[Rfam]
RNA sequence: GGGGGCGCACUGGUUUCGACGGGGAUUGUUGAAGUCAAGGCUGCAGGUCGAGGUUGGUCGAUGGCCUCGUAAAAAUCGACCACAAGAUAAUUGCAAACGACAAUUACGAUUACGCAAUGGCUGCUUAAUUGCAGAGUUGCUAUCUGACAACAUAGUUUGUCACGAUUCCUUUGUUGACGCCUUAUAGGCAAAACGAAUCGACAAAUCAUAGGGCUAGCAUCACCUAUUUGAUCUUUGUAUCUGAUGCGAAACACUUAAAGACCUAGUUCGAUGGCCGUCUGGCCCGGAGCAAUCCAUCGGGCGAAUGUUUAUUCCGGACCUAAACCUGUAGAAGCUUUUGCGGAUCAUUCUCGGACGGGAGUUCGAUUCUCCCCGCCUCCACCA
Numbered sequence: 001g002g003g004g005g006c007g008c009a010c011u012g013g014u015u016u017c018g019a020c021g022g023g024g025a026u027u028g029u030u031g032a033a034g035u036c037a038a039g040g041c042u043g044c045a046g047g048u049c050g051a052g053g054u055u056g057g058u059c060g061a062u063g064g065c066c067u068c069g070u071a072a073a074a075a076u077c078g079a080c081c082a083c084a085a086g087a088u089a090a091u092u093g094c095a096a097a098c099g100a101c102a103a104u105u106a107c108g109a110u111u112a113c114g115c116a117a118u119g120g121c122u123g124c125u126u127a128a129u130u131g132c133a134g135a136g137u138u139g140c141u142a143u144c145u146g147a148c149a150a151c152a153u154a155g156u157u158u159g160u161c162a163c164g165a166u167u168c169c170u171u172u173g174u175u176g177a178c179g180c181c182u183u184a185u186a187g188g189c190a191a192a193a194c195g196a197a198u199c200g201a202c203a204a205a206u207c208a209u210a211g212g213g214c215u216a217g218c219a220u221c222a223c224c225u226a227u228u229u230g231a232u233c234u235u236u237g238u239a240u241c242u243g244a245u246g247c248g249a250a251a252c253a254c255u256u257a258a259a260g261a262c263c264u265a266g267u268u269c270g271a272u273g274g275c276c277g278u279c280u281g282g283c284c285c286g287g288a289g290c291a292a293u294c295c296a297u298c299g300g301g302c303g304a305a306u307g308u309u310u311a312u313u314c315c316g317g318a319c320c321u322a323a324a325c326c327u328g329u330a331g332a333a334g335c336u337u338u339u340g341c342g343g344a345u346c347a348u349u350c351u352c353g354g355a356c357g358g359g360a361g362u363u364c365g366a367u368u369c370u371c372c373c374c375g376c377c378u379c380c381a382c383c384a
Stems, first nucleotide, its partner, number of pairs: 001380007020353007028345002034341002037338006044328005049069005056081007117138001121134004163200006171192001172190004179214007217247006231264001234261003266302009277290002281320002284317001286313002357373005
Annotation: The record is a 384-nucleotide RNA sequence from Pseudodesulfovibrio sp. JC047, which matches "transfer-messenger RNA" in Rfam. The family's RNA type in Rfam is non-coding RNA gene. Bacterial tmRNA, also known as 10Sa RNA or SsrA, is named for its dual tRNA and mRNA-like properties. Its role is to liberate the mRNA from a stalled ribosome. To accomplish this part of the tmRNA is used as a reading frame that ends in a translation stop signal. It scores 199 bits against the family's covariance model. The source organism's lineage runs through Bacteria, Thermodesulfobacteriota, Desulfovibrionia, Desulfovibrionales and Pseudodesulfovibrio.